[Rfam]
The record is an 83-nucleotide RNA from Centaurea solstitialis, which matches "Small nucleolar RNA R38" in Rfam. Rfam describes the family as follows. snoR38 is a C/D box small nucleolar RNA conserved across yeast, human, Arabidopsis and rice. It is encoded in the intron of elongation factor-1 gamma in both pombe and cerevisiae. snoR38 guides the methylation of 2'-O-ribose sites in 28S rRNA. A search with the family's covariance model found it, with a score of 62 bits. A reference for the family is Bachellerie et al. (1995), "Antisense snoRNAs: a family of nucleolar RNAs with long complementarities to rRNA", Trends Biochem Sci. Taxonomically the source falls in Centaurea (Eukaryota, Streptophytina, eudicotyledons, Pentapetalae). The base pairs follow the family's consensus structure, which was predicted with PFOLD. The family has 19 seed sequences and 2,295 matches in Rfam 15.1. The family's RNA type in Rfam is C/D-box small nucleolar RNA.

RNA sequence: GGUUGUGGAUGAUGAGAUCAUAUAUUUACACAGUUAUCCCUGUCUGAUUAAAUCUUGAUGAAAUCAUGUGAUCUGACACUAAU
Numbered sequence: 001g002g003u004u005g006u007g008g009a010u011g012a013u014g015a016g017a018u019c020a021u022a023u024a025u026u027u028a029c030a031c032a033g034u035u036a037u038c039c040c041u042g043u044c045u046g047a048u049u050a051a052a053u054c055u056u057g058a059u060g061a062a063a064u065c066a067u068g069u070g071a072u073c074u075g076a077c078a079c080u081a082a083u
Stems, first nucleotide, its partner, number of pairs: 001083001003081001005079003